[Rfam]
RNA sequence: AUAAAGGGUGUUUGCCUCUUCAUGGCAUGCGAGUGUGAUGGGCCUUGUGCCUGUCGCCUUGUAGAGUAUGGCAAUCAAGACAUACCCAACACAUAAUUUUUGUUUUCCUGGGGCAGUCGGCUGUCAGACACACCGGCGCCCCU
Numbered sequence: 001a002u003a004a005a006g007g008g009u010g011u012u013u014g015c016c017u018c019u020u021c022a023u024g025g026c027a028u029g030c031g032a033g034u035g036u037g038a039u040g041g042g043c044c045u046u047g048u049g050c051c052u053g054u055c056g057c058c059u060u061g062u063a064g065a066g067u068a069u070g071g072c073a074a075u076c077a078a079g080a081c082a083u084a085c086c087c088a089a090c091a092c093a094u095a096a097u098u099u100u101u102g103u104u105u106u107c108c109u110g111g112g113g114c115a116g117u118c119g120g121c122u123g124u125c126a127g128a129c130a131c132a133c134c135g136g137c138g139c140c141c142c143u
Stems, first nucleotide, its partner, number of pairs: 008092005013027004028063006035057009064087001066085005111141004116137005122132003